[Rfam]
RNA sequence: GAUAAAAGAAGUGAAAAACUUCUUCGCCGAAAAUCCAAGGGUUUCUGCGCAAGGUUAAUCCGCGCAGAGUUAGUCGGCACCUAAGGCGAGGGCGAAAGCCGUAGUCGAUGGAAAUAAGGUUAAUAUUCCUUAACCAGAUGGUAGUGACGGAUCUUGUAAGUUGUGAGUUCUUAAUGGAUUGAACUUGCCGCGAAAAGGUUCCAAGAAAUAGCUCCAUCAUUAGACCGUACCCUAAACCGACACAGGUGGAUUAAUAGAGUAUAUUUAGGCGCU
Numbered sequence: 001g002a003u004a005a006a007a008g009a010a011g012u013g014a015a016a017a018a019c020u021u022c023u024u025c026g027c028c029g030a031a032a033a034u035c036c037a038a039g040g041g042u043u044u045c046u047g048c049g050c051a052a053g054g055u056u057a058a059u060c061c062g063c064g065c066a067g068a069g070u071u072a073g074u075c076g077g078c079a080c081c082u083a084a085g086g087c088g089a090g091g092g093c094g095a096a097a098g099c100c101g102u103a104g105u106c107g108a109u110g111g112a113a114a115u116a117a118g119g120u121u122a123a124u125a126u127u128c129c130u131u132a133a134c135c136a137g138a139u140g141g142u143a144g145u146g147a148c149g150g151a152u153c154u155u156g157u158a159a160g161u162u163g164u165g166a167g168u169u170c171u172u173a174a175u176g177g178a179u180u181g182a183a184c185u186u187g188c189c190g191c192g193a194a195a196a197g198g199u200u201c202c203a204a205g206a207a208a209u210a211g212c213u214c215c216a217u218c219a220u221u222a223g224a225c226c227g228u229a230c231c232c233u234a235a236a237c238c239g240a241c242a243c244a245g246g247u248g249g250a251u252u253a254a255u256a257g258a259g260u261a262u263a264u265u266u267a268g269g270c271g272c273u
Base pairs, nucleotide, nucleotide: 006024007023008022009021010020011019025271026270027269028268033251034250035249036248039231040230044068045067046066047065048064049063053061054060075227076226077225080111081110085106086105087104089102091100092099093098115132116131117130118129119128135223137218140215141214143213144212145211149201150200151199152198160191161190163188165186166185167184168183169182170181237246238245253265254264255263256262
Background: The family of this 273-nucleotide part of an RNA from Pelagibacterales bacterium SAG-MED04 is "Bacterial large subunit ribosomal RNA". The family is grouped with related families in Rfam's "LSU clan". The family's consensus secondary structure is taken from published work.